mir-160 microRNA precursor family: an 85-nucleotide sequence from Miscanthus lutarioriparius. It scores 65 bits against the family's covariance model. Rfam links the family to the GO terms RISC complex and miRNA-mediated post-transcriptional gene silencing. On this family, see Rhoades et al., Cell 2002: "Prediction of plant microRNA targets". Pairs were carried over by alignment from the consensus structure, which was predicted with PFOLD.
[Rfam]
RNA sequence: AUAUGCCUGGCUCCCUGUAUGCCACUCGCACGGCUACCAUGCACCCGGUGGCCGCUGCGGCUGGCGUGCAAGGUGCCAAGCAUGG
Dot-bracket structure: .(((((.((((.((.(((((((((..(((...........................)))..))))))))).)).)))).))))).
Numbered sequence: 001a002u003a004u005g006c007c008u009g010g011c012u013c014c015c016u017g018u019a020u021g022c023c024a025c026u027c028g029c030a031c032g033g034c035u036a037c038c039a040u041g042c043a044c045c046c047g048g049u050g051g052c053c054g055c056u057g058c059g060g061c062u063g064g065c066g067u068g069c070a071a072g073g074u075g076c077c078a079a080g081c082a083u084g085g
Stems, first nucleotide, its partner, number of pairs: 002084005008078004013073002016070009027059003